cspA thermoregulator: a 433-nucleotide RNA from Photobacterium profundum.
RNA sequence: CUCAGUUCUUCAGAGAGUUAUUACAUGCAGCAUCAAGUACAAGUUAAACCUACAGCUACAAAAACAUUAUCGUUAUGUACCUAUAUGUUUCCUUUUAUUUAGCGUAAUAGUGUAUAAUUCAACAGAUUAUCACGUCGCAUCUGCGACAUUUAAAUAUUAAAUAAGGGACACACAUGUCUAACACAACUGGUAUCGUCAAGUGGUUUAACGAAGAGAAAGGUUUCGGUUUCAUCACUCAAGACAACGGCGGCGCUGACGUAUUCGUACAUUUCCGUGCAAUCGCUUCAGAAGGCUUUAAAACGCUUGCUGAAGGUCAAAAAGUUUCUUUUGAAGUAGAGCAAGGCCAAAAAGGUCUUCAAGCUGCAAACGUUGUAGCUAUAUAAUUCUUUAAUAAAAAGAAAUGAUAGAAGGUCGCCUUGGCGGCCUUUUUUGU
Numbered sequence: 001c002u003c004a005g006u007u008c009u010u011c012a013g014a015g016a017g018u019u020a021u022u023a024c025a026u027g028c029a030g031c032a033u034c035a036a037g038u039a040c041a042a043g044u045u046a047a048a049c050c051u052a053c054a055g056c057u058a059c060a061a062a063a064a065c066a067u068u069a070u071c072g073u074u075a076u077g078u079a080c081c082u083a084u085a086u087g088u089u090u091c092c093u094u095u096u097a098u099u100u101a102g103c104g105u106a107a108u109a110g111u112g113u114a115u116a117a118u119u120c121a122a123c124a125g126a127u128u129a130u131c132a133c134g135u136c137g138c139a140u141c142u143g144c145g146a147c148a149u150u151u152a153a154a155u156a157u158u159a160a161a162u163a164a165g166g167g168a169c170a171c172a173c174a175u176g177u178c179u180a181a182c183a184c185a186a187c188u189g190g191u192a193u194c195g196u197c198a199a200g201u202g203g204u205u206u207a208a209c210g211a212a213g214a215g216a217a218a219g220g221u222u223u224c225g226g227u228u229u230c231a232u233c234a235c236u237c238a239a240g241a242c243a244a245c246g247g248c249g250g251c252g253c254u255g256a257c258g259u260a261u262u263c264g265u266a267c268a269u270u271u272c273c274g275u276g277c278a279a280u281c282g283c284u285u286c287a288g289a290a291g292g293c294u295u296u297a298a299a300a301c302g303c304u305u306g307c308u309g310a311a312g313g314u315c316a317a318a319a320a321g322u323u324u325c326u327u328u329u330g331a332a333g334u335a336g337a338g339c340a341a342g343g344c345c346a347a348a349a350a351g352g353u354c355u356u357c358a359a360g361c362u363g364c365a366a367a368c369g370u371u372g373u374a375g376c377u378a379u380a381u382a383a384u385u386c387u388u389u390a391a392u393a394a395a396a397a398g399a400a401a402u403g404a405u406a407g408a409a410g411g412u413c414g415c416c417u418u419g420g421c422g423g424c425c426u427u428u429u430u431u432g433u
Stems, first nucleotide, its partner, number of pairs: 004019006026239001029236002043230001047228004056220002065215001067213002071210004077205001079204003082176003086172003095164006102120001104118002134147005178190003242336001244334002255263002266324001268322004275316002277313001281306002285302001288301001341355005358379001360377001361375005384400003388393001406429010
Rfam 15.1 lists 2,094 matches to the family in 1,285 species.
By type it is an RNA thermoregulator.
Gene Ontology terms of the family: response to temperature stimulus and regulation of translation.